[Rfam]
RNA sequence: UGCAACCCCUAUAAAAGGAGUAGUCCUCCAACCUGGGGCGACUUUCCCAUAUUCCGAAUUC
Number, nucleotide and partner (000 for none) at each position: 001u000002g000003c000004a000005a000006c000007c000008c000009c000010u000011a000012u000013a000014a000015a000016a000017g045018g044019a043020g042021u041022a000023g039024u038025c037026c036027u035028c000029c000030a000031a000032c000033c000034u000035g027036g026037g025038g024039c023040g000041a021042c020043u019044u018045u017046c000047c000048c000049a000050u000051a000052u000053u000054c000055c000056g000057a000058a000059u000060u000061c000
The family of this 61-nucleotide RNA from Triticum aestivum is "Plastid-psbN 5UTR RNA". From the family's description: Plastid psbN is a non-coding RNA (ncRNA) recognised in plastids. It was reported as a conserved 11 stem-loop in the prime untranslated region (5UTR) of psbN genes. The source organism's lineage runs through Eukaryota, Viridiplantae, Streptophyta, Magnoliopsida and Triticum. A search with the family's covariance model found it, with a score of 70 bits. The family's RNA type in Rfam is cis-regulatory element. On this family, see Richter et al., Plant Commun 2023: "Retrograde signaling in plants: A critical review focusing on the GUN pathway and beyond".